Description
Small nucleolar RNA SNORA47: a 134-nucleotide RNA sequence from Silurus meridionalis. Pairs were carried over by alignment from the consensus structure, which was predicted with WAR. Its family is annotated with RNA processing and nucleolus in the Gene Ontology.
RNA sequence: UGGAGGUUUGAGAAAGUUUGGAAGAUUUUUACAGUACUGCCGUAACUGGUUAUAGCCUCCAAGACUAAAUCUCGAUCAAUGCAUUCAUAUCUGACACUUCUGUUCAGAUUAUGCGCUACGGUCGAGGACAUUAU
Numbered sequence: 001u002g003g004a005g006g007u008u009u010g011a012g013a014a015a016g017u018u019u020g021g022a023a024g025a026u027u028u029u030u031a032c033a034g035u036a037c038u039g040c041c042g043u044a045a046c047u048g049g050u051u052a053u054a055g056c057c058u059c060c061a062a063g064a065c066u067a068a069a070u071c072u073c074g075a076u077c078a079a080u081g082c083a084u085u086c087a088u089a090u091c092u093g094a095c096a097c098u099u100c101u102g103u104u105c106a107g108a109u110u111a112u113g114c115g116c117u118a119c120g121g122u123c124g125a126g127g128a129c130a131u132u133a134u
Stems, first nucleotide, its partner, number of pairs: 002060005015047004019042003023038002080126001082124001085121001088118002095113002099108002